[Rfam]
RNA sequence: UGACGGAGCUACACCACAAGGAGUGGAUUGUGCGGCUUAAUUUGACUCAACGCGAGGAAACUUACCAGGGCCAAGUAUUGUGUAGAAACGAGCAAUACAGGAGUGGUGCAUGGUCGUUGGAAAUUGAUGGGAUGACUUUGACCUUAAAUGGUUGAAUGAGUGAGAUCUUUUGGACAUGUUCCGCACGGAACAGGAAGGAAAAGGCUAUAACAGAUCCGAGAUGCCCUCAGAUGCCCUGGGCUGCACGCGCAAUACAAUAGCAGGUAGAGAGAGAGACAGGAAGGUGCUCAGAUGGACUAUGUGCUGUAAGGCACAUACGAAAGAGGAAUUCCUAGUAAGUGUGUAUCAACAAUGGAUAUUGAAUAAGUCCCUGUAGCUUGUACACACCGCCCGUCACUAUCUCAGAUGUUUUUCAGGAUGAAGAGUCCAGGCUCUGAAUAAUGAAAAGUAGAUAAGAUGUAAGUCGUAACAAGGUUGCGGUCGGUGAACCAGCCGCAGGAUCAUUG
Dot-bracket structure: (((((.(((((((..((..((((((.((((((((((....((((........))))........(((((((...((((((............))))))...((.((((..(.(((((((...(((.(((((....))).((((......))))..)).))).....((((....(.((((((....)))))).).....))))....)))).))).....))))))).....)))))))...)).)))))))).)...((((......................))))....(....(((((((......)))))))....).....))))).....(((((.((.......)).)))))......))...)))))))))).))....(..((.(..(((((.(..(((((((((..((..(((((....)))))..))..)))))))))..).)))))...).))...)....(((((((.((....)).)))))))........
Annotation
The family of this 506-nucleotide part of an RNA from Vittaforma corneae is "Microsporidia small subunit ribosomal RNA". The source organism's lineage runs through Eukaryota, Opisthokonta, Fungi, Apansporoblastina and Vittaforma corneae. The literature on the family includes a 2001 paper in Science by Yusupov et al., "Crystal structure of the ribosome at 5.5 A resolution".